Shown here is a 111-nucleotide sequence from Enterobacteriaceae bacterium strain FGI 57, a member of the family "Magnesium riboswitch aptamer (Magnesium responsive RNA element)". The literature on the family includes a 2006 paper in Cold Spring Harb Symp Quant Biol by Groisman et al., "A Mg2+-responding RNA that controls the expression of a Mg2+ transporter".
[Rfam]
RNA sequence: CUUACCGGAGGCCGUAUGGAUCCCGAUCCCACCCCUCUCCCGCACGGGAGCGUAAUUUUCCGGUAAGUCAGUUUUCGCUGCCUUACCGAACACGUGAGGCAGUGACAUCCC
Dot-bracket structure: (((((((((((.....(((.........))).....((((......))))......))))))))))).........((((((((((.......))))))))))........
Gene Ontology term of the family: regulation of gene expression.
The family's consensus secondary structure is taken from published work.
The Magnesium sensor RNA element is a cis-regulatory element that regulates the expression of the magnesium transporter protein MgtA. It is located in the 5' UTR of this gene. The element adopts different structures depending on the presence or absence of Mg2+, this has the affect of regulating whether transcription reads through the mgtA coding region or stops within the 5' UTR.